[Rfam]
permuted transfer-messenger RNA: a 222-nucleotide RNA sequence from Xanthobacter versatilis. Bacterial tmRNA, also known as 10Sa RNA or SsrA, is named for its dual tRNA and mRNA-like properties. Its role is to liberate the mRNA from a stalled ribosome. To accomplish this part of the tmRNA is used as a reading frame that ends in a translation stop signal. The broken mRNA is replaced in the ribosome by the tmRNA and translation of the tmRNA leads to addition of a proteolysis tag to the incomplete protein enabling recognition by a protease. Recently a number of permuted tmRNA genes have been found encoded in two parts. tmRNAs have been identified in eubacteria and some chloroplasts but are absent from archaeal and eukaryote nuclear genomes. The match comes from Rfam's covariance-model search (150 bits). The family's consensus secondary structure is taken from published work. For this family Rfam cites "tmRDB (tmRNA database)" (Zwieb et al., Nucleic Acids Res, 2003).

RNA sequence: GGCGAUAAAUGGGUGUCGGAAUAAGCCUUUCGGACCCGGGGGCGGUACCCGGCGCCUCCACCAAAGCCCAACUUCCCCUUCAGGGAGGCGGGCUCCGGCGGGGGCGAAAUAGGAUCGACGAGGGUGUAAAGGGCAUACUUUCGCUCGGCAUGGUUCCGCCGUCAUCGGGCCGAACUGAUAGUUGCGAAUGACAACUAUGCUCCGGUUGCUCAGGCCGCGUGA
Number, nucleotide and partner (000 for none) at each position: 001g145002g144003c143004g142005a141006u000007a000008a000009a000010u000011g000012g000013g000014u135015g134016u133017c132018g000019g000020a000021a000022u000023a000024a000025g000026c124027c123028u122029u000030u121031c120032g119033g000034a000035c000036c052037c051038g050039g049040g048041g000042g000043c000044g000045g000046u000047a000048c040049c039050c038051g037052g036053c106054g105055c104056c103057u102058c101059c100060a000061c000062c000063a000064a000065a000066g000067c000068c000069c000070a000071a000072c000073u000074u000075c000076c000077c000078c000079u000080u000081c000082a000083g000084g000085g000086a000087g000088g000089c000090g000091g000092g000093c000094u000095c000096c000097g000098g000099c000100g059101g058102g057103g056104g055105c054106g053107a000108a000109a000110u000111a000112g000113g000114a000115u000116c000117g000118a000119c032120g031121a030122g028123g027124g026125u000126g000127u000128a000129a000130a000131g000132g017133g016134c015135a014136u000137a000138c000139u000140u000141u005142c004143g003144c002145u001146c161147g160148g159149c158150a000151u000152g000153g000154u000155u000156c000157c000158g149159c148160c147161g146162u000163c000164a000165u000166c000167g000168g000169g000170c000171c000172g000173a000174a000175c000176u000177g000178a000179u000180a000181g000182u000183u000184g000185c000186g000187a000188a000189u000190g000191a000192c000193a000194a000195c000196u000197a000198u000199g000200c000201u000202c000203c000204g000205g000206u000207u000208g000209c000210u000211c000212a000213g000214g000215c000216c000217g000218c000219g000220u000221g000222a000